[Rfam]
RNA sequence: CCGUGCAGCCGGGGAGAUAGCGGUGCCCUGUACCUGCAAUCCGCUCUAGCAGGGGUGAUGUCUCACCCAGGGCCGGCUACUGUAGGGCUGCCCCUGAAAAGUGGCGAUGACGUUUGGGUCUUACGCAACAGUACUUCGUGAACCGUGUCAGGGCAGGAAUGCAGCAGCACUAAAUGAAUGUUACUGUGUGCCGUGAGGGUGCCUGGACUGAGUUAACUAUCAGGGUAACGCCUGUGGUAGCGGUUCAAAGUGAGACGCACGG
Numbered sequence: 001c002c003g004u005g006c007a008g009c010c011g012g013g014g015a016g017a018u019a020g021c022g023g024u025g026c027c028c029u030g031u032a033c034c035u036g037c038a039a040u041c042c043g044c045u046c047u048a049g050c051a052g053g054g055g056u057g058a059u060g061u062c063u064c065a066c067c068c069a070g071g072g073c074c075g076g077c078u079a080c081u082g083u084a085g086g087g088c089u090g091c092c093c094c095u096g097a098a099a100a101g102u103g104g105c106g107a108u109g110a111c112g113u114u115u116g117g118g119u120c121u122u123a124c125g126c127a128a129c130a131g132u133a134c135u136u137c138g139u140g141a142a143c144c145g146u147g148u149c150a151g152g153g154c155a156g157g158a159a160u161g162c163a164g165c166a167g168c169a170c171u172a173a174a175u176g177a178a179u180g181u182u183a184c185u186g187u188g189u190g191c192c193g194u195g196a197g198g199g200u201g202c203c204u205g206g207a208c209u210g211a212g213u214u215a216a217c218u219a220u221c222a223g224g225g226u227a228a229c230g231c232c233u234g235u236g237g238u239a240g241c242g243g244u245u246c247a248a249a250g251u252g253a254g255a256c257g258c259a260c261g262g
Stems, first nucleotide, its partner, number of pairs: 001262006008056003011029004016024001018022001033053005062254005070246006077240010089227002093224005101217002103214003112208008120197006126188002129186005135178005145170004153162003
The record is a 262-nucleotide sequence from Lacrimispora algidixylanolytica, which matches "Bacterial large signal recognition particle RNA" in Rfam. A search with the family's covariance model found it, with a score of 193 bits. Rfam's curators write: The signal recognition particle (SRP) is a universally conserved ribonucleoprotein involved in the co-translational targeting of proteins to membranes. The literature on the family includes a 2002 paper in Nucleic Acids Res by Regalia et al., "Prediction of signal recognition particle RNA genes". The family's RNA type in Rfam is non-coding RNA gene.